The record is a 164-nucleotide RNA sequence from Erinaceus europaeus, which matches "Small nucleolar RNA SNORA69" in Rfam. The base pairs follow the family's consensus structure, which was predicted with PFOLD. It scores 112 bits against the family's covariance model. By type it is an H/ACA-box small nucleolar RNA. Rfam's curators write: U69 is a member of the H/ACA class of small nucleolar RNAs (snoRNAs) which act as guides in the the modification of uridines to pseudouridines. Rfam 15.1 lists 808 matches to the family in 584 species.

[Rfam]
RNA sequence: AAAGCAGGUUGCAAUUACAGUGCUUCAUGUCUGUGGAAGUACUGCCAUUACCCUGCUGAGAGAAAACCUGUGUCAAUCGUUUUUGUUUUUCCUUUUUUUUUCUUUUUCCUUUCUGAUUUUUGCCUUGAUGAGGAUAAAAUCAUGACAGAUGGACACGGACAAGU
Numbered sequence: 001a002a003a004g005c006a007g008g009u010u011g012c013a014a015u016u017a018c019a020g021u022g023c024u025u026c027a028u029g030u031c032u033g034u035g036g037a038a039g040u041a042c043u044g045c046c047a048u049u050a051c052c053c054u055g056c057u058g059a060g061a062g063a064a065a066a067c068c069u070g071u072g073u074c075a076a077u078c079g080u081u082u083u084u085g086u087u088u089u090u091c092c093u094u095u096u097u098u099u100u101u102c103u104u105u106u107u108c109c110u111u112u113c114u115g116a117u118u119u120u121u122g123c124c125u126u127g128a129u130g131a132g133g134a135u136a137a138a139a140u141c142a143u144g145a146c147a148g149a150u151g152g153a154c155a156c157g158g159a160c161a162a163g164u
Stems, first nucleotide, its partner, number of pairs: 003057006018044009068158007076150003084142002087139004093133003